Small nucleolar RNA SNORD56: a 70-nucleotide RNA from Castor canadensis. Gene Ontology terms of the family: nucleolus and RNA processing. The family's RNA type in Rfam is C/D-box small nucleolar RNA. For this family Rfam cites "Purified box C/D snoRNPs are able to reproduce site-specific 2'-O-methylation of target RNA in vitro" (Galardi et al., Mol Cell Biol, 2002). The organism belongs to Castor, within Eukaryota.
[Rfam]
RNA sequence: CUUCGAUGACGGUAAUAUAUUUUGUCUACAGAGUUCACUUAGUGAAUGUUGAGAUGUUGGGUUUGAGUGA
Number, nucleotide and partner (000 for none) at each position: 001c000002u069003u000004c067005g000006a000007u000008g026009a025010c024011g023012g000013u000014a000015a000016u000017a000018u000019a000020u000021u000022u000023u011024g010025u009026c008027u000028a000029c000030a000031g000032a000033g000034u000035u000036c000037a000038c000039u000040u000041a000042g000043u000044g000045a000046a000047u000048g000049u000050u000051g000052a000053g000054a000055u000056g000057u000058u000059g000060g000061g000062u000063u000064u000065g000066a000067g004068u000069g002070a000